[Rfam]
RNA sequence: AAGUAAGGGCGUACGGUGAAUGCCUUGGUGCCAACAGGCGAAGAAGGACGCGGCAAGCUGCGAAAAGCCUCGGGAAGCUGCAAGCAAGCGAUGAUCCGGGGAUAUCCGAAUGGGGUAACCUGAUCGAGGCAAUACUCGAUCGUUCAUACCUGAAUACAUAGGGUAUGAAACGCGAAACCCGCUGAAGUGAAACAUCUCAGUAAGCGGAGGAAAAGAAAGAGAAAUCGAUUCCGUAAGUAGUGGCGAGCGAAAGCGGAUGGAGCCCAAACCGAAGGUAUUCCUUCGGGGUUGUAGGACCACGUCAUAUUCGACCAUACUGGAUAGUAGAACAGCCUGGAAAGGCUGGCCGGAGAAGGUGAAAGCCCUGUAGACGAAAUCCAGAGUGGGAAUUAGUGGUAUCCUGAGUAAUACAUCACACGUGGAACGAUGUAUGAACCCGCGCGGACCACCGCGCAAGGCUAAAUACUAGUUGGCGACCGAUAGUGAACAAGUACCGCGAGGGAAAGGUGAAAAGAACCGCUGUGAGCGGAGUGAAAUAGAACCUGAAACCGUAUGUCUACAAAGUGUCAGAGCAGAGCAAUCUGCGAUGGCGUG
Numbered sequence: 001a002a003g004u005a006a007g008g009g010c011g012u013a014c015g016g017u018g019a020a021u022g023c024c025u026u027g028g029u030g031c032c033a034a035c036a037g038g039c040g041a042a043g044a045a046g047g048a049c050g051c052g053g054c055a056a057g058c059u060g061c062g063a064a065a066a067g068c069c070u071c072g073g074g075a076a077g078c079u080g081c082a083a084g085c086a087a088g089c090g091a092u093g094a095u096c097c098g099g100g101g102a103u104a105u106c107c108g109a110a111u112g113g114g115g116u117a118a119c120c121u122g123a124u125c126g127a128g129g130c131a132a133u134a135c136u137c138g139a140u141c142g143u144u145c146a147u148a149c150c151u152g153a154a155u156a157c158a159u160a161g162g163g164u165a166u167g168a169a170a171c172g173c174g175a176a177a178c179c180c181g182c183u184g185a186a187g188u189g190a191a192a193c194a195u196c197u198c199a200g201u202a203a204g205c206g207g208a209g210g211a212a213a214a215g216a217a218a219g220a221g222a223a224a225u226c227g228a229u230u231c232c233g234u235a236a237g238u239a240g241u242g243g244c245g246a247g248c249g250a251a252a253g254c255g256g257a258u259g260g261a262g263c264c265c266a267a268a269c270c271g272a273a274g275g276u277a278u279u280c281c282u283u284c285g286g287g288g289u290u291g292u293a294g295g296a297c298c299a300c301g302u303c304a305u306a307u308u309c310g311a312c313c314a315u316a317c318u319g320g321a322u323a324g325u326a327g328a329a330c331a332g333c334c335u336g337g338a339a340a341g342g343c344u345g346g347c348c349g350g351a352g353a354a355g356g357u358g359a360a361a362g363c364c365c366u367g368u369a370g371a372c373g374a375a376a377u378c379c380a381g382a383g384u385g386g387g388a389a390u391u392a393g394u395g396g397u398a399u400c401c402u403g404a405g406u407a408a409u410a411c412a413u414c415a416c417a418c419g420u421g422g423a424a425c426g427a428u429g430u431a432u433g434a435a436c437c438c439g440c441g442c443g444g445a446c447c448a449c450c451g452c453g454c455a456a457g458g459c460u461a462a463a464u465a466c467u468a469g470u471u472g473g474c475g476a477c478c479g480a481u482a483g484u485g486a487a488c489a490a491g492u493a494c495c496g497c498g499a500g501g502g503a504a505a506g507g508u509g510a511a512a513a514g515a516a517c518c519g520c521u522g523u524g525a526g527c528g529g530a531g532u533g534a535a536a537u538a539g540a541a542c543c544u545g546a547a548a549c550c551g552u553a554u555g556u557c558u559a560c561a562a563a564g565u566g567u568c569a570g571a572g573c574a575g576a577g578c579a580a581u582c583u584g585c586g587a588u589g590g591c592g593u594g
Base pairs, nucleotide, nucleotide: 007558008557009556010555011554012553013552014551015550016549022543023507024506027478028477029475030474031473032472033471034470035469036467037466038173039172046107047106048105049062050061051060068101069100070099071098072097073096074095077089078088079087112121113120114119122141123140124139125138126137127136128135143170144169145167146166147165148164149163150162151161178209179207180206181205182204183203189196190195219226220225229463230257231256232255233254234253240248241247261460262459263458264457269286270285271284272283273282274281275280293402294401295400297396298395299394300393312386313385314384315383317381318380319379320378321377322376324372325371330345331344332343333342334341348352354366355365356364408432409431410430411429412428413427414426439454440453441452442451443450494501495500517529518528519527520526566591567590568589569588572585573584574583575582576581

Rfam assigns this 594-nucleotide part of an RNA from Akkermansia muciniphila to the family "Bacterial large subunit ribosomal RNA". It is one of the family's seed sequences. Taxonomically the source falls in Akkermansia (Bacteria, Verrucomicrobiota, Verrucomicrobiia, Verrucomicrobiales). The base pairs follow the family's consensus structure, which is taken from published work.